[Rfam]
RNA sequence: GCCGGGUGCGGUGGCGCGCGCCUGUAAUCCAAGCUCCCGGGAGGCUGAGGCUGGAGGAUCGAAUGAGCUCGGGAGCUCUGAGCCGCGGCGGACUGUGUCGAUCGGGUGUCCCGCUAAGUUCGGCAUCGAUAUGGUGAUCACGGGGGAGCCCGGGACCACCAGGUCGUCUAAGGAGGGGUGCACCGGCCCAGGUCGGAAACGGAGCAGGUCAAAGCCCCCGCGCCGCUCAGUAGCGGGAUCGCGCCUGUGAACAGACGCCGCGGUGCAGCCCGAGUGAUGCAGCGGGACCCAGUCUUUA
Numbered sequence: 001g002c003c004g005g006g007u008g009c010g011g012u013g014g015c016g017c018g019c020g021c022c023u024g025u026a027a028u029c030c031a032a033g034c035u036c037c038c039g040g041g042a043g044g045c046u047g048a049g050g051c052u053g054g055a056g057g058a059u060c061g062a063a064u065g066a067g068c069u070c071g072g073g074a075g076c077u078c079u080g081a082g083c084c085g086c087g088g089c090g091g092a093c094u095g096u097g098u099c100g101a102u103c104g105g106g107u108g109u110c111c112c113g114c115u116a117a118g119u120u121c122g123g124c125a126u127c128g129a130u131a132u133g134g135u136g137a138u139c140a141c142g143g144g145g146g147a148g149c150c151c152g153g154g155a156c157c158a159c160c161a162g163g164u165c166g167u168c169u170a171a172g173g174a175g176g177g178g179u180g181c182a183c184c185g186g187c188c189c190a191g192g193u194c195g196g197a198a199a200c201g202g203a204g205c206a207g208g209u210c211a212a213a214g215c216c217c218c219c220g221c222g223c224c225g226c227u228c229a230g231u232a233g234c235g236g237g238a239u240c241g242c243g244c245c246u247g248u249g250a251a252c253a254g255a256c257g258c259c260g261c262g263g264u265g266c267a268g269c270c271c272g273a274g275u276g277a278u279g280c281a282g283c284g285g286g287a288c289c290c291a292g293u294c295u296u297u298a
Base pairs, nucleotide, nucleotide: 001045002044003043004023005022006021007020008019009018010017028042029041030040047296048295049294050293051292052291053290054289059285060284061283067275068274069273070272071271072270073269078268079267080266082264083263084262085261086260087259088258089257090256093254094253095252096251098249103247104246105245106244107243108242109241110237111236112235113234114233115232116231118228121225122224123223124222126220127166128165129164130163132161133160134159135158136157138155139154141152142151143150144149167173168172175218176217177216178215179214185210186209187208188207193202194201195200
Shown here is a 298-nucleotide RNA from Parambassis ranga, a member of the family "Metazoan signal recognition particle RNA". The family has 91 seed sequences and 383,523 matches in Rfam 15.1. Lineage of the source: Eukaryota > Euteleostomi > Actinopteri > Teleostei > Parambassis.